[Rfam]
RNA sequence: UACUUAAGUCAACAAAAGAAGGCAUGCGUCAACAUGCCCUCAAUGUAGAGCCGUAUUAGACGGUAGCAUAUUUUAUUUCAUACUAAC
Numbered sequence: 001u002a003c004u005u006a007a008g009u010c011a012a013c014a015a016a017a018g019a020a021g022g023c024a025u026g027c028g029u030c031a032a033c034a035u036g037c038c039c040u041c042a043a044u045g046u047a048g049a050g051c052c053g054u055a056u057u058a059g060a061c062g063g064u065a066g067c068a069u070a071u072u073u074u075a076u077u078u079c080a081u082a083c084u085a086a087c
Stems, first nucleotide, its partner, number of pairs: 023036004050064005
Dot-bracket structure: ......................((((......)))).............(((((.....))))).......................
A member of the RNA family "RNA anti-toxin A" from Vagococcus allomyrinae, 87 nucleotides long. NCBI's taxonomy places the organism under Bacteria, Bacillota, Bacilli, Enterococcaceae, Vagococcus. Rfam 15.1 lists 190 matches to the family in 120 species. Pairs were carried over by alignment from the consensus structure, which was predicted with RNAalifold. Rfam classes the family as an antitoxin RNA.